[Rfam]
RNA sequence: ACUCUCCAGUUCCCUUUCUCAUGGGAUCUAAACAUUGGUCUGGAUGUUUGUAAAAGGGAGAGACAUAACACUGAAACUGACCCCAGUGCUUUUAUAGCACAUGGGCUCGUUUCAAACAGGU
Numbered sequence: 001a002c003u004c005u006c007c008a009g010u011u012c013c014c015u016u017u018c019u020c021a022u023g024g025g026a027u028c029u030a031a032a033c034a035u036u037g038g039u040c041u042g043g044a045u046g047u048u049u050g051u052a053a054a055a056g057g058g059a060g061a062g063a064c065a066u067a068a069c070a071c072u073g074a075a076a077c078u079g080a081c082c083c084c085a086g087u088g089c090u091u092u093u094a095u096a097g098c099a100c101a102u103g104g105g106c107u108c109g110u111u112u113c114a115a116a117c118a119g120g121u
Stems, first nucleotide, its partner, number of pairs: 003061005020046003025040004077109001079107001081105003